[Rfam]
RNA sequence: AAAAAAGCAGGGACCUGUUGCCUAUGUGAACAGGUCUCUCGUAAACUUCAGGGAAAUCAGUUACAUCGUUAUUGGGUGAACCUCUGUUUAUGUUCCGUGGCUGAAGGUUCAGUAAAUGAUGGAACAUUU
Numbered sequence: 001a002a003a004a005a006a007g008c009a010g011g012g013a014c015c016u017g018u019u020g021c022c023u024a025u026g027u028g029a030a031c032a033g034g035u036c037u038c039u040c041g042u043a044a045a046c047u048u049c050a051g052g053g054a055a056a057u058c059a060g061u062u063a064c065a066u067c068g069u070u071a072u073u074g075g076g077u078g079a080a081c082c083u084c085u086g087u088u089u090a091u092g093u094u095c096c097g098u099g100g101c102u103g104a105a106g107g108u109u110c111a112g113u114a115a116a117u118g119a120u121g122g123a124a125c126a127u128u129u
Stems, first nucleotide, its partner, number of pairs: 005048003011037002014034004064121007077111007
RNA: Small nucleolar RNA snoR74